A member of the RNA family "NiCo (Nickel/Cobalt) riboswitch aptamer" from Hydrogenoanaerobacterium saccharovorans, 97 nucleotides long. Clan: NiCo_riboswitches. Rfam links the family to the GO terms cobalt ion binding and metal ion homeostasis. A reference for the family is Furukawa et al. (2015), "Bacterial riboswitches cooperatively bind Ni(2+) or Co(2+) ions and control expression of heavy metal transporters", Mol Cell. Pairs were carried over by alignment from the consensus structure, which is taken from published work. A search with the family's covariance model found it, with a score of 78 bits.

[Rfam]
RNA sequence: ACAGUACAAACUGAGCAGGCGAUGAACCGAUAAGGUUCGUGGGGCUGGGCCGGCAACGGCAGCAGAUUGAAUUUGAUUUCACAUCUGUGGGACAGUG
Numbered sequence: 001a002c003a004g005u006a007c008a009a010a011c012u013g014a015g016c017a018g019g020c021g022a023u024g025a026a027c028c029g030a031u032a033a034g035g036u037u038c039g040u041g042g043g044g045c046u047g048g049g050c051c052g053g054c055a056a057c058g059g060c061a062g063c064a065g066a067u068u069g070a071a072u073u074u075g076a077u078u079u080c081a082c083a084u085c086u087g088u089g090g091g092a093c094a095g096u097g
Stems, first nucleotide, its partner, number of pairs: 010096004016091001018046003022040006049060004062088006
NCBI's taxonomy places the organism under Bacteria, Bacillota, Eubacteriales, Oscillospiraceae, Hydrogenoanaerobacterium.